[Rfam]
RNA: Ruegeria cis2 sRNA
Organism: Cereibacter ovatus
RNA sequence: ACCGAACUGUAGUGCGGAUUGUAGUUCAGGAACACGAAGCCGCGGGUCUGGUCGAUGGUGUGAAACAGCGGGUUCCAGUUGAACAGCCACAACAUGUAGCCCGGCAGCAUGUUGGCCACGAACAUCUUGCCCGACGCGAUCAUGUUGCCGCGCAUG
Numbered sequence: 001a002c003c004g005a006a007c008u009g010u011a012g013u014g015c016g017g018a019u020u021g022u023a024g025u026u027c028a029g030g031a032a033c034a035c036g037a038a039g040c041c042g043c044g045g046g047u048c049u050g051g052u053c054g055a056u057g058g059u060g061u062g063a064a065a066c067a068g069c070g071g072g073u074u075c076c077a078g079u080u081g082a083a084c085a086g087c088c089a090c091a092a093c094a095u096g097u098a099g100c101c102c103g104g105c106a107g108c109a110u111g112u113u114g115g116c117c118a119c120g121a122a123c124a125u126c127u128u129g130c131c132c133g134a135c136g137c138g139a140u141c142a143u144g145u146u147g148c149c150g151c152g153c154a155u156g
Base pairs, nucleotide, nucleotide: 003036004035008034009033010032013029016026017025039059040058041057042056043054044053045052066156067155068153069152070151072084073083074082075081090147091146092145093144094143095142096141100136102133103132104131105129106128107127109125110124112121113120114119